[Rfam]
RNA sequence: AUAAAUAUUGGGAAUGAAGUACUCCCGUGGUUUAUACCUAAAACGCUAACAAGCUAAUGACUUCUGUGAUGUU
Numbered sequence: 001a002u003a004a005a006u007a008u009u010g011g012g013a014a015u016g017a018a019g020u021a022c023u024c025c026c027g028u029g030g031u032u033u034a035u036a037c038c039u040a041a042a043a044c045g046c047u048a049a050c051a052a053g054c055u056a057a058u059g060a061c062u063u064c065u066g067u068g069a070u071g072u073u
Stems, first nucleotide, its partner, number of pairs: 010026004016064005045054003
Dot-bracket structure: .........[[[[..(((((..]]]]..................(((....))).....))))).........
RNA: Fluoride riboswitch aptamer (crcB RNA motif)